Guanidine-I riboswitch aptamer: a 95-nucleotide sequence from Acetonema longum. Rfam's curators write: This family represents a conserved RNA structure found upstream of the ykkC and yxkD genes in Bacillus subtilis and related genes in other bacteria. The function of this family is unclear although it has been suggested that it may function to switch on efflux pumps and detoxification systems in response to harmful environmental molecules. The organism belongs to Acetonema longum, within Bacteria. The base pairs follow the family's consensus structure.
[Rfam]
RNA sequence: UAAGUGGUUUUCCAGGGUUCCGCAGCUUACUGGCUGAUCCGAGAGAAAACAACAGUCUACGGAAUGUAGCACGGAGGAAUAAAAGUCCGGGAGAA
Numbered sequence: 001u002a003a004g005u006g007g008u009u010u011u012c013c014a015g016g017g018u019u020c021c022g023c024a025g026c027u028u029a030c031u032g033g034c035u036g037a038u039c040c041g042a043g044a045g046a047a048a049a050c051a052a053c054a055g056u057c058u059a060c061g062g063a064a065u066g067u068a069g070c071a072c073g074g075a076g077g078a079a080u081a082a083a084a085g086u087c088c089g090g091g092a093g094a095a
Stems, first nucleotide, its partner, number of pairs: 007050006015040002021036001022034001023032003052067003056063002070090001072093001076088003
It scores 64 bits against the family's covariance model.